[Rfam]
RNA sequence: GAUCGCAAUGAUGACUUGAAAAUUCAAGCUCAACAGACUGGAUUACAAGCUUUCGCUCUGAGAAGCUUGUAUGUCGACAAUGACAACAUUCUGAGUGAUC
Numbered sequence: 001g002a003u004c005g006c007a008a009u010g011a012u013g014a015c016u017u018g019a020a021a022a023u024u025c026a027a028g029c030u031c032a033a034c035a036g037a038c039u040g041g042a043u044u045a046c047a048a049g050c051u052u053u054c055g056c057u058c059u060g061a062g063a064a065g066c067u068u069g070u071a072u073g074u075c076g077a078c079a080a081u082g083a084c085a086a087c088a089u090u091c092u093g094a095g096u097g098a099u100c
Stems, first nucleotide, its partner, number of pairs: 001100006
This 100-nucleotide RNA from Hevea brasiliensis belongs to the Rfam family "Small nucleolar RNA Z107/R87". The literature on the family includes a 2001 paper in J Mol Biol by Barneche et al., "Identification of 66 box C/D snoRNAs in Arabidopsis thaliana: extensive gene duplications generated multiple isoforms predicting new ribosomal RNA 2'-O-methylation sites". Its family is annotated with nucleolus and RNA processing in the Gene Ontology. The family's RNA type in Rfam is C/D-box small nucleolar RNA. The family has 9 seed sequences and 783 matches in Rfam 15.1.